Rfam assigns this 173-nucleotide RNA sequence from Clostridium puniceum to the family "Group II catalytic intron D1-D4-3". Group II introns are found in rRNA, tRNA and mRNA of organelles in fungi, plants and protists, and also in mRNA in bacteria. The match comes from Rfam's covariance-model search (146 bits).
RNA sequence: UCCAUCGCGAGGUGGAAUCUGAAGGAAGUCGGCGGCAAAGCCUUGGUCUGAGGUACACGAAUCAUAUUUGAGGCUCAAUUCUGUGGGUAAACUUGCAAAACAAAGUAAAGCCCAAUAACUAUCCGAAACAGAAAGAGUAAAAGUGGCAGAUGGAUGAGGUGAAAGUACGUGGU
Numbered sequence: 001u002c003c004a005u006c007g008c009g010a011g012g013u014g015g016a017a018u019c020u021g022a023a024g025g026a027a028g029u030c031g032g033c034g035g036c037a038a039a040g041c042c043u044u045g046g047u048c049u050g051a052g053g054u055a056c057a058c059g060a061a062u063c064a065u066a067u068u069u070g071a072g073g074c075u076c077a078a079u080u081c082u083g084u085g086g087g088u089a090a091a092c093u094u095g096c097a098a099a100a101c102a103a104a105g106u107a108a109a110g111c112c113c114a115a116u117a118a119c120u121a122u123c124c125g126a127a128a129c130a131g132a133a134a135g136a137g138u139a140a141a142a143g144u145g146g147c148a149g150a151u152g153g154a155u156g157a158g159g160u161g162a163a164a165g166u167a168c169g170u171g172g173u
Stems, first nucleotide, its partner, number of pairs: 001016006028173004035166002040160006046151005062146004067141001073138003079133006085113004091106004
Dot-bracket structure: ((((((....))))))...........((((...((...(((((((((((...........((((.(.....(((...((((((((((..((((........))))...))))..............))))))..)))..).)))))))))...))))))....))...))))